Shown here is a 207-nucleotide RNA from Ktedonobacteria bacterium brp13, a member of the family "FMN riboswitch aptamer (RFN element)".
RNA sequence: AGUUGUCUUCAGGGCAGGGUGAGGGAGUGAGUGCAUCGUCUGCAUUGCUGUAACAACAGGCAAACAAUAACAGCGCUAUGCAUUCGUCCCAAUUCCCGAUCGGCGGUAUAGUCCGCGACCCAUGACAUAUCUUUAAUAAAGGCAUGUUAUGGCUGAUCCGGUGAAACUCCGGGGCCGACGGUAUAGUCCGGAUGGGAGAAGACACGA
Numbered sequence: 001a002g003u004u005g006u007c008u009u010c011a012g013g014g015c016a017g018g019g020u021g022a023g024g025g026a027g028u029g030a031g032u033g034c035a036u037c038g039u040c041u042g043c044a045u046u047g048c049u050g051u052a053a054c055a056a057c058a059g060g061c062a063a064a065c066a067a068u069a070a071c072a073g074c075g076c077u078a079u080g081c082a083u084u085c086g087u088c089c090c091a092a093u094u095c096c097c098g099a100u101c102g103g104c105g106g107u108a109u110a111g112u113c114c115g116c117g118a119c120c121c122a123u124g125a126c127a128u129a130u131c132u133u134u135a136a137u138a139a140a141g142g143c144a145u146g147u148u149a150u151g152g153c154u155g156a157u158c159c160g161g162u163g164a165a166a167c168u169c170c171g172g173g174g175c176c177g178a179c180g181g182u183a184u185a186g187u188c189c190g191g192a193u194g195g196g197a198g199a200a201g202a203c204a205c206g207a
Base pairs, nucleotide, nucleotide: 004204005203006202007201008200009199010198017097018096019095099187100186101177102176103116104115105114106113111175112174120152121151122150123149124148125147126146127145128144157173158172159171160170161169179190180189181188
From the family's description: The RFN element is a highly conserved domain that is found frequently in the 5'-untranslated regions of prokaryotic mRNAs that encode for flavin mononucleotide (FMN) biosynthesis and transport proteins.